[Rfam]
The record is a 101-nucleotide sequence from Sediminihaliea albiluteola, which matches "SAM-I/IV (S-adenosyl methionine) riboswitch aptamer" in Rfam.
On this family, see Weinberg et al., RNA 2008: "The aptamer core of SAM-IV riboswitches mimics the ligand-binding site of SAM-I riboswitches".
Taxonomically the source falls in Sediminihaliea (Bacteria, Pseudomonadota, Gammaproteobacteria, Cellvibrionales).
RNA sequence: GCACAGCAUCAAGAAGGGUUUAUAGCCCUGCCAACCUGCCCUCCCAGGCAAGGUGGCCUCCCUUAGGGGGAUGUGGUCGCAAGGCAACCAAAUGGGACUCC
Numbered sequence: 001g002c003a004c005a006g007c008a009u010c011a012a013g014a015a016g017g018g019u020u021u022a023u024a025g026c027c028c029u030g031c032c033a034a035c036c037u038g039c040c041c042u043c044c045c046a047g048g049c050a051a052g053g054u055g056g057c058c059u060c061c062c063u064u065a066g067g068g069g070g071a072u073g074u075g076g077u078c079g080c081a082a083g084g085c086a087a088c089c090a091a092a093u094g095g096g097a098c099u100c101c
Base pairs, nucleotide, nucleotide: 006074007073008072009071010070015029016028017027018026019025020024030057031056032055035053036052037051038049039048040047042097043096044095045094046093076085077084078083